[Rfam]
RNA sequence: CUGUACAUUUUUCACUUUUUAAAAUACAGUAUUCAGUGAACAAUGGUUGCAAACAGCAGGCUCAUUGGUACUACAUGCAACUUGCUGUUUGUAUGGGUUGUCCUGGGAACCCUGGAGAUUGGC
Numbered sequence: 001c002u003g004u005a006c007a008u009u010u011u012u013c014a015c016u017u018u019u020u021a022a023a024a025u026a027c028a029g030u031a032u033u034c035a036g037u038g039a040a041c042a043a044u045g046g047u048u049g050c051a052a053a054c055a056g057c058a059g060g061c062u063c064a065u066u067g068g069u070a071c072u073a074c075a076u077g078c079a080a081c082u083u084g085c086u087g088u089u090u091g092u093a094u095g096g097g098u099u100g101u102c103c104u105g106g107g108a109a110c111c112c113u114g115g116a117g118a119u120u121g122g123c
Base pairs, nucleotide, nucleotide: 001036002035003034007030008029009028067111068110069109078100079099080098081097082096083095

The family of this 123-nucleotide RNA from Mus spicilegus is "Small nucleolar RNA SNORA70". About the family: snoRNA U70 seems to be exclusive to mammals and is a member of the H/ACA class of snoRNA which contain H (ANANNA) and ACA box motifs. H/ACA box snoRNAs are involved in the conversion of uridines to pseudouridines (5-ribosyluracil) a constituent of structural RNAs (transfer, ribosomal, small nuclear, and small nucleolar). By type it is an H/ACA-box small nucleolar RNA. Lineage of the source: Eukaryota > Metazoa > Eumetazoa > Boreoeutheria > Mus. The family has 43 seed sequences and 5,173 matches in Rfam 15.1. Its family is annotated with RNA processing and nucleolus in the Gene Ontology. On this family, see Charette and Gray, IUBMB Life 2000: "Pseudouridine in RNA: what, where, how, and why".